Shown here is a 289-nucleotide sequence from Hymenoscyphus fraxineus, a member of the family "Fungal signal recognition particle RNA". The match comes from Rfam's covariance-model search (149 bits). By type it is a non-coding RNA gene. A reference for the family is Wild et al. (2002), "Towards the structure of the mammalian signal recognition particle", Curr Opin Struct Biol.
Nucleotides: 289
Base pairs, nucleotide, nucleotide: 001015002014003013004012021284022283023282024281027277032272037269038268039267041265042264043263048261049260050259051258052257053256054255055254056253057252058251062077063076064075065074066073067072081249084245085244086243087242088241089239090238091237093232094231095230096229097228098226099225100224102221103220104219105218107216108215109214110213112156114154115153116152117151119149122140123139124138125137126136128135129134157161165212166211167210168209169208170207171206176205177204178203179202180201185196186195187194
Number, partner (000 for none) and nucleotide at each position: 001015c002014a003013g004012c005000u006000g007000u008000a009000a010000c011000g012004g013003c014002u015001g016000c017000c018000c019000c020000c021284a022283a023282g024281g025000a026000a027277g028000a029000c030000a031000a032272u033000c034000u035000c036000c037269c038268u039267c040000c041265c042264a043263c044000a045000a046000g047000u048261c049260a050259u051258c052257c053256a054255c055254c056253a057252a058251g059000u060000c061000c062077g063076g064075c065074u066073c067072c068000u069000c070000a071000c072067g073066g074065a075064g076063c077062c078000a079000a080000c081249u082000a083000c084245c085244a086243a087242c088241a089239g090238u091237g092000c093232c094231c095230a096229g097228u098226c099225c100224g101000a102221a103220c104219a105218u106000g107216g108215c109214g110213g111000u112156g113000g114154c115153u116152c117151c118000c119149c120000a121000c122140u123139c124138g125137u126136g127000c128135a129134g130000g131000a132000a133000a134129c135128u136126c137125a138124c139123g140122a141000u142000c143000c144000g145000c146000u147000g148000c149119g150000c151117g152116g153115g154114g155000c156112c157161c158000u159000a160000a161157g162000c163000a164000a165212u166211g167210a168209a169208g170207a171206u172000g173000a174000c175000c176205u177204u178203c179202u180201u181000g182000a183000g184000g185196g186195a187194g188000g189000c190000c191000u192000c193000a194187c195186u196185c197000u198000g199000c200000a201180g202179a203178g204177a205176g206171a207170u208169c209168u210167u211166c212165a213110c214109c215108g216107u217000g218105g219104u220103g221102u222000g223000g224100c225099g226098g227000u228097a229096u230095u231094g232093g233000a234000a235000u236000a237091c238090a239089c240000u241088u242087g243086u244085u245084g246000c247000g248000u249081g250000g251058u252057u253056u254055g255054g256053u257052g258051g259050g260049u261048g262000u263043g264042u265041g266000u267039g268038g269037g270000u271000u272032g273000a274000g275000c276000g277027u278000c279000g280000a281024c282023c283022u284021u285000a286000u287000c288000u289000u